[Rfam]
RNA sequence: CCUUUGGAGUGUUAUAUCAAACUAAAGUAGUAUGUGAUUUAUUCACUACAAAAUAGGACACGAUGAAUAAGGAA
Numbered sequence: 001c002c003u004u005u006g007g008a009g010u011g012u013u014a015u016a017u018c019a020a021a022c023u024a025a026a027g028u029a030g031u032a033u034g035u036g037a038u039u040u041a042u043u044c045a046c047u048a049c050a051a052a053a054u055a056g057g058a059c060a061c062g063a064u065g066a067a068u069a070a071g072g073a074a
Stems, first nucleotide, its partner, number of pairs: 001072004009061005022056003030049003035045002